Shown here is a 62-nucleotide RNA from Colobus angolensis, a member of the family "U7 small nuclear RNA". From the family's description: Animal histone pre-mRNAs are spliced by a different mechanism than nuclear pre-mRNAs and self-splicing introns. This processing involves the U7 snRNP, which contains only one RNA species: U7. The 5' end of U7 RNA is thought to base-pair to a conserved spacer element downstream of the cleavage site in histone pre-mRNA. This family contains a number of annotated U7 pseudogenes.

RNA sequence: UAGUGUUACAGGUCUUUUAAAAUUUGUCUACUAGGCUUUCUGGUUUUUGCUAGAAAGCCCCA
Dot-bracket structure: .................................(((((((((((....)))))))))))...